[Rfam]
RNA sequence: UGUCGUGCACCUCGCCGCGCUGCGUUCGACUGAUGCGGCAAGUCGGUAGCCGGGGUCUUAAGGCUACGCGUGCACUGCUGCGCUGACCCGUCCCGUUCGCCUCGCAUCCCCCUGCGAACAGCCACCGCCAACGCGGUAGUCGAUGC
Dot-bracket structure: ((.(..(((........................)))).)).....((((((..[[[[....))))))..(((((....))))).]]]].........................(((....((.(((((....))))).))...)))

Description: A member of the RNA family "radC RNA", 146 nucleotides long.